[Rfam]
Nucleotides: 076
Stems, first nucleotide, its partner, number of pairs: 005024006047070006
Number, partner (000 for none) and nucleotide at each position: 001000g002000g003000u004000a005024u006023g007022g008021g009020g010019a011000c012000u013000g014000c015000g016000a017000u018000c019010u020009c021008c022007c023006c024005a025000u026000g027000a028000g029000g030000c031000g032000a033000c034000a035000u036000g037000c038000u039000g040000a041000a042000g043000u044000a045000u046000c047070g048069c049068g050067u051066c052065c053000u054000g055000c056000u057000a058000c059000g060000c061000u062000g063000a064000a065052g066051g067050a068049c069048g070047c071000c072000g073000c074000a075000u076000g
Rfam assigns this 76-nucleotide RNA sequence to the family "chrB-a RNA". The sequence is in the family's curated seed alignment. The family's RNA type in Rfam is cis-regulatory element. Pairs were carried over by alignment from the consensus structure, which is taken from published work.